[Rfam]
Purine riboswitch aptamer: a 100-nucleotide RNA sequence from Photobacterium profundum. Riboswitches are metabolite binding domains within certain messenger RNAs that serve as precision sensors for their corresponding targets. Allosteric rearrangement of mRNA structure is mediated by ligand binding, and this results in modulation of gene expression. A class of riboswitches that selectively recognises guanine and becomes saturated at concentrations as low as 5 nM. In Bacillus subtilis, this mRNA motif is located on at least five separate transcriptional units that together encode 17 genes that are mostly involved in purine transport and purine nucleotide biosynthesis. The family is grouped with related families in Rfam's "Purine riboswitches". The family's consensus secondary structure is taken from published work.

RNA sequence: UAAUAAUGGGUAAAGUUACUUCGUAUAACCCCACUUAUAGGGUGUGGGGGUCUCUACCAGAAUCCGUAAAAUUCUGAUUACGAAGAGUUGAGUGAUUGAU
Numbered sequence: 001u002a003a004u005a006a007u008g009g010g011u012a013a014a015g016u017u018a019c020u021u022c023g024u025a026u027a028a029c030c031c032c033a034c035u036u037a038u039a040g041g042g043u044g045u046g047g048g049g050g051u052c053u054c055u056a057c058c059a060g061a062a063u064c065c066g067u068a069a070a071a072u073u074c075u076g077a078u079u080a081c082g083a084a085g086a087g088u089u090g091a092g093u094g095a096u097u098g099a100u
Stems, first nucleotide, its partner, number of pairs: 019085007029049006058076006